The record is an 85-nucleotide RNA from Bombyx mori, which matches "mir-2807 microRNA precursor family" in Rfam.
For this family Rfam cites "MicroRNAs of Bombyx mori identified by Solexa sequencing" (Liu et al., BMC Genomics, 2010).
[Rfam]
RNA sequence: UUAACUCUAAUUUGUAUGGAGUUGGAACAGCGCCCCUAGCGGCAAACGUAGGGACACUGUUCUAACUCCAUACAAAAUAAAAAAC
Dot-bracket structure: .......((.((((((.(.((((((((((....(((..(.......)...)))....)))))))))).).)))))).))......
Background
The organism belongs to Bombyx, within Eukaryota. It scores 59 bits against the family's covariance model. The base pairs follow the family's consensus structure, which was predicted with RNAalifold.